RNA: S15-Flavobacteria ribosomal protein leader
Organism: Flavobacterium columnare
RNA sequence: UAAAUUUGCGUCCGUAUCGAGAAAAUCUCGGUCUACAUAAUAAUCAUUUAAAUAAUAUUAGCAUG
Numbered sequence: 001u002a003a004a005u006u007u008g009c010g011u012c013c014g015u016a017u018c019g020a021g022a023a024a025a026u027c028u029c030g031g032u033c034u035a036c037a038u039a040a041u042a043a044u045c046a047u048u049u050a051a052a053u054a055a056u057a058u059u060a061g062c063a064u065g
Stems, first nucleotide, its partner, number of pairs: 016032005